[Rfam]
RNA sequence: CGUCCUUGCCAAACACUCUGGCCCUUACCUCCCUUCCCAUCGAGGAUCGGUUCAAUCUGUGGUAUAGGCCUAUUUUUGGAGCAAGAAGAUUGAUAUUCGUCCGAUUACUCACCGAGGUAUUCUCUUUCCUUUUCGGAGGAUGUGGAUAUUUUGGUCCAUAUCUUUUGGUCAACAA
Numbered sequence: 001c002g003u004c005c006u007u008g009c010c011a012a013a014c015a016c017u018c019u020g021g022c023c024c025u026u027a028c029c030u031c032c033c034u035u036c037c038c039a040u041c042g043a044g045g046a047u048c049g050g051u052u053c054a055a056u057c058u059g060u061g062g063u064a065u066a067g068g069c070c071u072a073u074u075u076u077u078g079g080a081g082c083a084a085g086a087a088g089a090u091u092g093a094u095a096u097u098c099g100u101c102c103g104a105u106u107a108c109u110c111a112c113c114g115a116g117g118u119a120u121u122c123u124c125u126u127u128c129c130u131u132u133u134c135g136g137a138g139g140a141u142g143u144g145g146a147u148a149u150u151u152u153g154g155u156c157c158a159u160a161u162c163u164u165u166u167g168g169u170c171a172a173c174a175a
Base pairs, nucleotide, nucleotide: 007083008082009081020070021069022068023067026064027063028062029061031050032049099170101168102167112154113153114152115151117149118148119147121146122145123144
RNA: Small nucleolar RNA snR80